Rfam assigns this 150-nucleotide RNA sequence from Azomonas macrocytogenes to the family "Group II catalytic intron D1-D4-7".
[Rfam]
RNA sequence: CCUGGCGUGUACCCGCCAGUUCACUAAGUCGGCAUGCAAUCGGGGCCAACCCGGCUGUGUGAAGCCCGACCAACAAUGCUCCUCUCCGUAAGGACUACCUAACCCGGUAACGGAUAAGGUAUCGCCGCCGAGUUGCACGGAGGCAGAGGA
Numbered sequence: 001c002c003u004g005g006c007g008u009g010u011a012c013c014c015g016c017c018a019g020u021u022c023a024c025u026a027a028g029u030c031g032g033c034a035u036g037c038a039a040u041c042g043g044g045g046c047c048a049a050c051c052c053g054g055c056u057g058u059g060u061g062a063a064g065c066c067c068g069a070c071c072a073a074c075a076a077u078g079c080u081c082c083u084c085u086c087c088g089u090a091a092g093g094a095c096u097a098c099c100u101a102a103c104c105c106g107g108u109a110a111c112g113g114a115u116a117a118g119g120u121a122u123c124g125c126c127g128c129c130g131a132g133u134u135g136c137a138c139g140g141a142g143g144c145a146g147a148g149g150a
Base pairs, nucleotide, nucleotide: 002019003018004017005016006015007014028070029069030068031067032066033061034060035059036058037057038056040054041053042052043051044050085094086093087092096121097120098119099118105112106111125143126142128140129139130138
A search with the family's covariance model found it, with a score of 77 bits. On this family, see Chu et al., EMBO J 2001: "Control of branch-site choice by a group II intron". Rfam's curators write: Group II introns are found in rRNA, tRNA and mRNA of organelles in fungi, plants and protists, and also in mRNA in bacteria.